Shown here is a 69-nucleotide sequence, a member of the family "ftsZ-DE RNA". Pairs were carried over by alignment from the consensus structure, which is taken from published work. The family's RNA type in Rfam is small RNA.
[Rfam]
RNA sequence: GGGUACGUAAAGGCGUACCCACCACAACACAAGGGAUCACCCGGGUCUCCCUGCCUGGGUGGUCCUUCU
Numbered sequence: 001g002g003g004u005a006c007g008u009a010a011a012g013g014c015g016u017a018c019c020c021a022c023c024a025c026a027a028c029a030c031a032a033g034g035g036a037u038c039a040c041c042c043g044g045g046u047c048u049c050c051c052u053g054c055c056u057g058g059g060u061g062g063u064c065c066u067u068c069u
Base pairs, nucleotide, nucleotide: 001020002019003018004017005016006015007014008013032067033066034065035064036063037062038061039060040059041058042057043056044055045054046053